Shown here is a 118-nucleotide RNA from Oleidesulfovibrio alaskensis, a member of the family "STnc490 Hfq binding RNA".
The family has 76 seed sequences and 285 matches in Rfam 15.1.
RNA sequence: AACCCCCCGCUAGGCGGGGGGGUCCGUAAAGCUUAAAGCUAUAGAGAUAUUAGUAAAACUCCUUUUGAUUUGCUAAUUAAUCCCUGCGGUCUGGCAACUGCAGGUGGCAAAUCAAAAG
Numbered sequence: 001a002a003c004c005c006c007c008c009g010c011u012a013g014g015c016g017g018g019g020g021g022g023u024c025c026g027u028a029a030a031g032c033u034u035a036a037a038g039c040u041a042u043a044g045a046g047a048u049a050u051u052a053g054u055a056a057a058a059c060u061c062c063u064u065u066u067g068a069u070u071u072g073c074u075a076a077u078u079a080a081u082c083c084c085u086g087c088g089g090u091c092u093g094g095c096a097a098c099u100g101c102a103g104g105u106g107g108c109a110a111a112u113c114a115a116a117a118g
Stems, first nucleotide, its partner, number of pairs: 001023001003021008028042001030040004062118013083104008
Dot-bracket structure: (.((((((((...)))))))).)....(.((((...)))).)...................(((((((((((((........((((((((......)))))))).)))))))))))))

Annotation: The source organism's lineage runs through Bacteria, Pseudomonadati, Thermodesulfobacteriota, Oleidesulfovibrio and Oleidesulfovibrio alaskensis.